RNA sequence: CGGUCGGCAGUACACCCAGGCCUUGCCGCGCGGUCUUCCGCGAGCUAAACCUGCCA
Number, nucleotide and partner (000 for none) at each position: 001c000002g016003g015004u014005c000006g000007g000008c000009a000010g000011u000012a000013c000014a004015c003016c002017c000018a000019g000020g000021c000022c000023u000024u000025g000026c000027c000028g000029c042030g041031c040032g039033g000034u000035c000036u000037u000038c000039c032040g031041c030042g029043a000044g000045c000046u000047a000048a000049a000050c000051c000052u000053g000054c000055c000056a000
The family of this 56-nucleotide RNA from Roseateles toxinivorans is "COG3860 RNA". The base pairs follow the family's consensus structure, which is taken from published work. Taxonomically the source falls in Roseateles (Bacteria, Betaproteobacteria, Burkholderiales, Sphaerotilaceae).